Shown here is a 432-nucleotide RNA sequence from Mycolicibacterium chubuense, a member of the family "Bacterial RNase P class A". Its family is annotated with dimeric ribonuclease P complex, ribonuclease P activity and tRNA processing in the Gene Ontology. The source organism's lineage runs through Bacteria, Bacillati, Mycobacteriales, Mycobacterium and Mycobacterium (subgen. Mycolicibacterium). The base pairs follow the family's consensus structure, which is taken from published work. Its Rfam clan is "RNaseP clan". It scores 279 bits against the family's covariance model.
RNA sequence: UGAGCUGGCUGGGCGGCCGCGGAUCAUCGACCGGCCGGAUAGGGGUACGGCCUAGGUGGUUCGAGGAAAGUCCGGACUUCACAGAGCAGGGUGAUUGCUAACGGCAAUCCGAGGUGACUCGCGGGAAAGUGCCACAGAAAGCAGACCGCCACCACCGAGUCUCCGGACCACGGGGUGGUAAGGGUGAAACGGUGCGGUAAGAGCGCACCAGCGCUCCGGGUGACCGGAGUGGCUCGGCAAACCCCACCCGAAGCAAGGCCAAGAAUGUCGCGCGGGGGGCGCGGCAGCGCAGACGCCCGAGGGCUGCUCGCCCGAGUCUGCGGGUAGGCCGCUCGAGGCACCCGGUGACGGUGUGUCCAGAUGGAUGGUCGCCACUUCGCCGCCAGACAUGGCGGCGAGAGACAGAAUCCGGCUUACAGGCCGGCUCAUCCG
Dot-bracket structure: ((((((((((((((((((.(((((((((..........................)))))))))....[[[.[[[[[((((...[[[[.((((((((((.....)))))(((((....)))).)((...(((((............((((((((.(................).))))))..)).......((((((.......)))))).(((((((((....)))))))).)..)))..)))))))))))))...((((............................((((((......((((.]]]]))))..)))))).....))))......((((((((....))).))))).........)))))))..................................]]]]]]]].).))))))))))....
Numbered sequence: 001u002g003a004g005c006u007g008g009c010u011g012g013g014c015g016g017c018c019g020c021g022g023a024u025c026a027u028c029g030a031c032c033g034g035c036c037g038g039a040u041a042g043g044g045g046u047a048c049g050g051c052c053u054a055g056g057u058g059g060u061u062c063g064a065g066g067a068a069a070g071u072c073c074g075g076a077c078u079u080c081a082c083a084g085a086g087c088a089g090g091g092u093g094a095u096u097g098c099u100a101a102c103g104g105c106a107a108u109c110c111g112a113g114g115u116g117a118c119u120c121g122c123g124g125g126a127a128a129g130u131g132c133c134a135c136a137g138a139a140a141g142c143a144g145a146c147c148g149c150c151a152c153c154a155c156c157g158a159g160u161c162u163c164c165g166g167a168c169c170a171c172g173g174g175g176u177g178g179u180a181a182g183g184g185u186g187a188a189a190c191g192g193u194g195c196g197g198u199a200a201g202a203g204c205g206c207a208c209c210a211g212c213g214c215u216c217c218g219g220g221u222g223a224c225c226g227g228a229g230u231g232g233c234u235c236g237g238c239a240a241a242c243c244c245c246a247c248c249c250g251a252a253g254c255a256a257g258g259c260c261a262a263g264a265a266u267g268u269c270g271c272g273c274g275g276g277g278g279g280c281g282c283g284g285c286a287g288c289g290c291a292g293a294c295g296c297c298c299g300a301g302g303g304c305u306g307c308u309c310g311c312c313c314g315a316g317u318c319u320g321c322g323g324g325u326a327g328g329c330c331g332c333u334c335g336a337g338g339c340a341c342c343c344g345g346u347g348a349c350g351g352u353g354u355g356u357c358c359a360g361a362u363g364g365a366u367g368g369u370c371g372c373c374a375c376u377u378c379g380c381c382g383c384c385a386g387a388c389a390u391g392g393c394g395g396c397g398a399g400a401g402a403c404a405g406a407a408u409c410c411g412g413c414u415u416a417c418a419g420g421c422c423g424g425c426u427c428a429u430c431c432g
Stems, first nucleotide, its partner, number of pairs: 001428010011417001012373007020063009068415003072412005077253004084309004089249005094108005109123001110121004124244002129242002131238003146183002148179006155172001191209006211233001212231008257330004289321006301313004337357005342351003